The family of this 208-nucleotide RNA sequence from Pelagibaculum spongiae is "Lysine riboswitch aptamer". Pairs were carried over by alignment from the consensus structure, which is taken from published work.
RNA sequence: CUAUCAGGUAGAGGUGCGCUGUUUAAAAGUAGUUUGUCCGAGGGUGACUCCGUUGAAGACAAGUGAAAGGAAAUAGCGCCGAAGUAGUGAUGAGUUGUCAGCUCUUGCUGCUGGGGUGUCGCCGAAUAGGCCUCACACUGUCAUGGCCGUAAACGAUUGGAAUGUUUACGGGAGUCAUCUUGGCUCACCAUGGAGCGCUACCGGAAUC
Numbered sequence: 001c002u003a004u005c006a007g008g009u010a011g012a013g014g015u016g017c018g019c020u021g022u023u024u025a026a027a028a029g030u031a032g033u034u035u036g037u038c039c040g041a042g043g044g045u046g047a048c049u050c051c052g053u054u055g056a057a058g059a060c061a062a063g064u065g066a067a068a069g070g071a072a073a074u075a076g077c078g079c080c081g082a083a084g085u086a087g088u089g090a091u092g093a094g095u096u097g098u099c100a101g102c103u104c105u106u107g108c109u110g111c112u113g114g115g116g117u118g119u120c121g122c123c124g125a126a127u128a129g130g131c132c133u134c135a136c137a138c139u140g141u142c143a144u145g146g147c148c149g150u151a152a153a154c155g156a157u158u159g160g161a162a163u164g165u166u167u168a169c170g171g172g173a174g175u176c177a178u179c180u181u182g183g184c185u186c187a188c189c190a191u192g193g194a195g196c197g198c199u200a201c202c203g204g205a206a207u208c
Base pairs, nucleotide, nucleotide: 007202008201009200010199011198016079017078018077019076020075021074022073023072024071032064033063034062035061036060037059038058083112084111085110086109087108088107090106092104093103094102113139114138116136117135118134121131122130123129141193142192143191144190145189146188
Dot-bracket structure: ......(((((....(((((((((.......(((((((...................)))))))......)))))))))...((((((.(.(((.......))).)))))))((.(((..(((.....)))..))).)).((((((.........................................))))))....)))))......